[Rfam]
RNA: Small nucleolar RNA SNORA9
RNA sequence: UCGCAAGCCUUCCAGCGUGAUUGGAUCUGACCGUGAUCUGAAUCAUUCCUGUUGCUUGCAAGAGCAUCUUUGUGAUGGUUUGAGGCCUUUCUCUGCUUCUACUUCGGGGAAAGGUUAUAGAAAUCUCAGACAAGC
Numbered sequence: 001u002c003g004c005a006a007g008c009c010u011u012c013c014a015g016c017g018u019g020a021u022u023g024g025a026u027c028u029g030a031c032c033g034u035g036a037u038c039u040g041a042a043u044c045a046u047u048c049c050u051g052u053u054g055c056u057u058g059c060a061a062g063a064g065c066a067u068c069u070u071u072g073u074g075a076u077g078g079u080u081u082g083a084g085g086c087c088u089u090u091c092u093c094u095g096c097u098u099c100u101a102c103u104u105c106g107g108g109g110a111a112a113g114g115u116u117a118u119a120g121a122a123a124u125c126u127c128a129g130a131c132a133a134g135c
Stems, first nucleotide, its partner, number of pairs: 003059006018045003023039005071128002074125002086114006093107003